Shown here is a 131-nucleotide RNA sequence from Nannospalax galili, a member of the family "Small nucleolar RNA SNORA63".
E3 belongs to the H/ACA class of snoRNAs and is involved in the processing of eukaryotic pre-rRNA and has regions of complementarity to 18S rRNA. E3 is encoded in introns in the gene for protein synthesis initiation factor 4AII.
It scores 102 bits against the family's covariance model.
Taxonomically the source falls in Nannospalax (Eukaryota, Eumetazoa, Teleostomi, Boreoeutheria).
Rfam 15.1 lists 1,279 matches to the family in 601 species.

[Rfam]
RNA sequence: AAACAGGAUUUAAGUGCAGUAUAGCUGCUAAGUGCUCUAAGUGUCGUUUCCCUGCUCAAAACAACUUUCUUUCUUUACUAUACCUGUCUGCUAGACAACUGUAGCAGCCAGGGACACUUGGUCCCAUACAU
Numbered sequence: 001a002a003a004c005a006g007g008a009u010u011u012a013a014g015u016g017c018a019g020u021a022u023a024g025c026u027g028c029u030a031a032g033u034g035c036u037c038u039a040a041g042u043g044u045c046g047u048u049u050c051c052c053u054g055c056u057c058a059a060a061a062c063a064a065c066u067u068u069c070u071u072u073c074u075u076u077a078c079u080a081u082a083c084c085u086g087u088c089u090g091c092u093a094g095a096c097a098a099c100u101g102u103a104g105c106a107g108c109c110a111g112g113g114a115c116a117c118u119u120g121g122u123c124c125c126a127u128a129c130a131u
Stems, first nucleotide, its partner, number of pairs: 004054004016044003020039002023036003083112004088107004